[Rfam]
RNA sequence: GAGUGUUACAGCUCUUUUAGAAUUUAUCUAGCAAGUUUUCCAGUUUUCAUCAGAAAACUCAU
Numbered sequence: 001g002a003g004u005g006u007u008a009c010a011g012c013u014c015u016u017u018u019a020g021a022a023u024u025u026a027u028c029u030a031g032c033a034a035g036u037u038u039u040c041c042a043g044u045u046u047u048c049a050u051c052a053g054a055a056a057a058c059u060c061a062u
Base pairs, nucleotide, nucleotide: 034059035058036057037056038055039054040053043050044049